[Rfam]
RNA sequence: CAGAAAAUAGUUUAGUGAGAAUGAUAGCUUUGGGAGCUGUUGGUGUAAGUAUAAAGUCUUGCUUUUCUGA
Numbered sequence: 001c002a003g004a005a006a007a008u009a010g011u012u013u014a015g016u017g018a019g020a021a022u023g024a025u026a027g028c029u030u031u032g033g034g035a036g037c038u039g040u041u042g043g044u045g046u047a048a049g050u051a052u053a054a055a056g057u058c059u060u061g062c063u064u065u066u067c068u069g070a
Base pairs, nucleotide, nucleotide: 001069002068003067004066005065006064007063010022011021012020013019024040025039026038027037028036045062046061047060048059049058